[Rfam]
RNA: Bacterial large subunit ribosomal RNA, nucleotides 1645 to 1995
RNA sequence: UGAGAGAACUCAGGAGAAGGAACUCGGCAAAUUGAUACCGUAACUUCGGGAGAAGGUAUACCCCGGUAGGGUGAAGGGCUUGCGCCCGGAGCUCGAUGGGGUCACAGAGAAUCGGUGGCUGCGACUGUUUAUUAAAAACACAGCACUCUGCAAAGACGAAAGUCGACGUAUAGGGUGUGACGCCUGCCCGGUGCCGGAAGGUUAAGUGAUGGGGUGCAAGCUCUUGAUCGAAGCCCCGGUAAACGGCGGCCGUAACUAUAACGGUCCUAAGGUAGCGAAAUUCCUUGUCGGGUAAGUUCCGACCUGCACGAAUGGCGUAACGAUGGCCACACUGUCUCCUCCUGAGACUCA
Numbered sequence: 001u002g003a004g005a006g007a008a009c010u011c012a013g014g015a016g017a018a019g020g021a022a023c024u025c026g027g028c029a030a031a032u033u034g035a036u037a038c039c040g041u042a043a044c045u046u047c048g049g050g051a052g053a054a055g056g057u058a059u060a061c062c063c064c065g066g067u068a069g070g071g072u073g074a075a076g077g078g079c080u081u082g083c084g085c086c087c088g089g090a091g092c093u094c095g096a097u098g099g100g101g102u103c104a105c106a107g108a109g110a111a112u113c114g115g116u117g118g119c120u121g122c123g124a125c126u127g128u129u130u131a132u133u134a135a136a137a138a139c140a141c142a143g144c145a146c147u148c149u150g151c152a153a154a155g156a157c158g159a160a161a162g163u164c165g166a167c168g169u170a171u172a173g174g175g176u177g178u179g180a181c182g183c184c185u186g187c188c189c190g191g192u193g194c195c196g197g198a199a200g201g202u203u204a205a206g207u208g209a210u211g212g213g214g215u216g217c218a219a220g221c222u223c224u225u226g227a228u229c230g231a232a233g234c235c236c237c238g239g240u241a242a243a244c245g246g247c248g249g250c251c252g253u254a255a256c257u258a259u260a261a262c263g264g265u266c267c268u269a270a271g272g273u274a275g276c277g278a279a280a281u282u283c284c285u286u287g288u289c290g291g292g293u294a295a296g297u298u299c300c301g302a303c304c305u306g307c308a309c310g311a312a313u314g315g316c317g318u319a320a321c322g323a324u325g326g327c328c329a330c331a332c333u334g335u336c337u338c339c340u341c342c343u344g345a346g347a348c349u350c351a
Base pairs, nucleotide, nucleotide: 001351002350003349004348009346010345011344012343013342014341015340016339018337019336020335035059036058037057038056039055044049060102061101062100063099064098065097076087077086078085079084103107115330116329117328118327119326120325121324122322123321126140127139128138143178144177145176146175147174148173149172150171151168155164156163157162181317182316183315184314186247187246188245191244192243193240194239195238196237197236200235201234202233206229211224212223213222214221215220248266249265250264251263252262253261267271277304287303288302289301290300291299292298